[Rfam]
RNA sequence: AACAACCAACAACUUUUUUAUUUUUCAUUUACUCUUAAUUGAGUAAUACUCCUUUUAGCUGCCUAUUUCCAAGGGCAGCUUUUUUCU
Dot-bracket structure: ............................((((((......))))))...........(((((((.(....).)))))))........